[Rfam]
RNA sequence: UGCGCAGCGCAUGUUUGAGAACGAUGUUGCGAAAGCUCACCCCCUUGAGCCGCGCGGUCCGGAUGAAUUGCGCGGUCAUGACCUCUGUCAUGGAGGCCCGCGUCAUCCGCGCCACAUAACCCAUGCCAUACAGGGCAAUGGUCAGGACGGGCAGGGUGAAGUUCUCGAAGGUGAUGUCU
Numbered sequence: 001u002g003c004g005c006a007g008c009g010c011a012u013g014u015u016u017g018a019g020a021a022c023g024a025u026g027u028u029g030c031g032a033a034a035g036c037u038c039a040c041c042c043c044c045u046u047g048a049g050c051c052g053c054g055c056g057g058u059c060c061g062g063a064u065g066a067a068u069u070g071c072g073c074g075g076u077c078a079u080g081a082c083c084u085c086u087g088u089c090a091u092g093g094a095g096g097c098c099c100g101c102g103u104c105a106u107c108c109g110c111g112c113c114a115c116a117u118a119a120c121c122c123a124u125g126c127c128a129u130a131c132a133g134g135g136c137a138a139u140g141g142u143c144a145g146g147a148c149g150g151g152c153a154g155g156g157u158g159a160a161g162u163u164c165u166c167g168a169a170g171g172u173g174a175u176g177u178c179u
Stems, first nucleotide, its partner, number of pairs: 005140002009136002012133001015130001016128002019126001021124001028123002031120001040111001042109001046105003051100002054097001055075001057073002060070003082096005145179003151172002154165003

Description
The record is a 179-nucleotide RNA from Aliishimia ponticola, which matches "Ruegeria cis52 sRNA" in Rfam. Rfam links the family to the GO term regulation of gene expression. The source organism's lineage runs through Bacteria, Pseudomonadati, Pseudomonadota, Alphaproteobacteria and Aliishimia. The family has 2 seed sequences and 277 matches in Rfam 15.1.